[Rfam]
RNA sequence: CCAAAAUAUUAUAUUUUUUCUAUAAAAAGAAAAAAAUUGAAAAAAAUUA
Numbered sequence: 001c002c003a004a005a006a007u008a009u010u011a012u013a014u015u016u017u018u019u020c021u022a023u024a025a026a027a028a029g030a031a032a033a034a035a036a037u038u039g040a041a042a043a044a045a046a047u048u049a
Base pairs, nucleotide, nucleotide: 014045015044016043017042018041019040020039022037023036
Shown here is a 49-nucleotide RNA sequence from Gorilla gorilla, a member of the family "KRAS 3' UTR cis-regulatory element". The sequence is in the family's curated seed alignment. Rfam's curators write: AU-rich 49 nt fragment in KRAS 3'UTR. Its sequence but not the secondary is necessary and sufficient for reporter repression in HeLa cells. The family's consensus secondary structure was predicted with RNAfold.